[Rfam]
RNA sequence: UGAUGAAAAAGGCAAAUCCAUUGAAAAAUGGGGACGCAAAGCCACGGGCCUAAAGCAAUUAUGCCAAGGUAGCCGAGUUACCAUC
Numbered sequence: 001u002g003a004u005g006a007a008a009a010a011g012g013c014a015a016a017u018c019c020a021u022u023g024a025a026a027a028a029u030g031g032g033g034a035c036g037c038a039a040a041g042c043c044a045c046g047g048g049c050c051u052a053a054a055g056c057a058a059u060u061a062u063g064c065c066a067a068g069g070u071a072g073c074c075g076a077g078u079u080a081c082c083a084u085c
Base pairs, nucleotide, nucleotide: 012037013036017032018031019030020029021028022027040079041078042077045075046074047073048070049069050068055064056063057062

Shown here is an 85-nucleotide RNA sequence from Salibacterium salarium, a member of the family "c-di-GMP-I riboswitch aptamer". It scores 82 bits against the family's covariance model. NCBI's taxonomy places the organism under Bacteria, Bacillota, Bacilli, Bacillaceae, Salibacterium. Pairs were carried over by alignment from the consensus structure, which is taken from published work.